[Rfam]
RNA sequence: CAUUCGCGCCUGUAUCUUGCUGAACCGUUCAACCAGUCCUCUUUCCGGUUGAGCAAAAUUUCAGGUGUGUGAGAAA
Dot-bracket structure: ..((((((((((.((.((.((.(.(((..................))).).)).)).))..))))))..))))...
This 76-nucleotide RNA from Ceratitis capitata belongs to the Rfam family "mir-87 microRNA precursor family". NCBI's taxonomy places the organism under Eukaryota, Eumetazoa, Schizophora, Acalyptratae, Ceratitis. Pairs were carried over by alignment from the consensus structure, which was predicted with RNAalifold. Rfam links the family to the GO terms RISC complex and miRNA-mediated post-transcriptional gene silencing. The literature on the family includes a 2007 paper in Genome Res by Ruby et al., "Evolution, biogenesis, expression, and target predictions of a substantially expanded set of Drosophila microRNAs".